[Rfam]
RNA sequence: AGAAUUCCCGGAGAGGUAACUCCGGGAAGAUACAAUAAAUUAAGAUUAAGUGGUAGGAAUCAACGAGCAUGUUGCAAUA
Numbered sequence: 001a002g003a004a005u006u007c008c009c010g011g012a013g014a015g016g017u018a019a020c021u022c023c024g025g026g027a028a029g030a031u032a033c034a035a036u037a038a039a040u041u042a043a044g045a046u047u048a049a050g051u052g053g054u055a056g057g058a059a060u061c062a063a064c065g066a067g068c069a070u071g072u073u074g075c076a077a078u079a
Stems, first nucleotide, its partner, number of pairs: 005028009061074004
RNA: Plastid-rpl20 3UTR RNA